[Rfam]
tRNA: a 108-nucleotide sequence from Penicillium fimorum. Taxonomically the source falls in Penicillium (Eukaryota, Opisthokonta, Fungi, leotiomyceta). Pairs were carried over by alignment from the consensus structure, which is taken from published work.
RNA sequence: GGAACUGUAGGAUAAUGGUUAGUCCAUCAAGCUUAUGUAAUUCUCCCUAACCGGGAAAUUAUCAUGAUUCAUUCCUUGAAUAUCGUGGUUCGAUUCCGCGCAGUUCCA
Numbered sequence: 001g002g003a004a005c006u007g008u009a010g011g012a013u014a015a016u017g018g019u020u021a022g023u024c025c026a027u028c029a030a031g032c033u034u035a036u037g038u039a040a041u042u043c044u045c046c047c048u049a050a051c052c053g054g055g056a057a058a059u060u061a062u063c064a065u066g067a068u069u070c071a072u073u074c075c076u077u078g079a080a081u082a083u084c085g086u087g088g089u090u091c092g093a094u095u096c097c098g099c100g101c102a103g104u105u106c107c108a
Base pairs, nucleotide, nucleotide: 001107002106003105004104005103006102007101010025011024012023013022027079028078029077030076031075084100085099086098087097088096